SAM riboswitch aptamer (S box leader): a 96-nucleotide RNA from Megasphaera sp. UPII 135-E. The organism belongs to Megasphaera, within Bacteria.
[Rfam]
RNA sequence: CUUUUAUCCAGAGUGGUGGAGGGACUGGCCCGAUGAAACCCGGCAACCGAUAACGACGGUGCUAAUUCCUGCGGAAGAGAUUCCGAGAGAUAAAUU
Numbered sequence: 001c002u003u004u005u006a007u008c009c010a011g012a013g014u015g016g017u018g019g020a021g022g023g024a025c026u027g028g029c030c031c032g033a034u035g036a037a038a039c040c041c042g043g044c045a046a047c048c049g050a051u052a053a054c055g056a057c058g059g060u061g062c063u064a065a066u067u068c069c070u071g072c073g074g075a076a077g078a079g080a081u082u083c084c085g086a087g088a089g090a091u092a093a094a095u096u
Stems, first nucleotide, its partner, number of pairs: 003094006013041001015040003021031003025071001027069002042063004047059002067088001072085005